[Rfam]
RNA sequence: GCUCCAGAUGUUUUUGAUUGUUGCUCAGAAAGCCUUAAUUAUUUUUUGGCUUUCUAGCAAUAAUCACGACCAGAUGAGAG
Numbered sequence: 001g002c003u004c005c006a007g008a009u010g011u012u013u014u015u016g017a018u019u020g021u022u023g024c025u026c027a028g029a030a031a032g033c034c035u036u037a038a039u040u041a042u043u044u045u046u047u048g049g050c051u052u053u054c055u056a057g058c059a060a061u062a063a064u065c066a067c068g069a070c071c072a073g074a075u076g077a078g079a080g
Base pairs, nucleotide, nucleotide: 003078005076006075012069013068015066016065017064018063020061021060022059023058024057025056028054029053030052031051032050033049034048
RNA: mir-315 microRNA precursor family
Organism: Rhodnius prolixus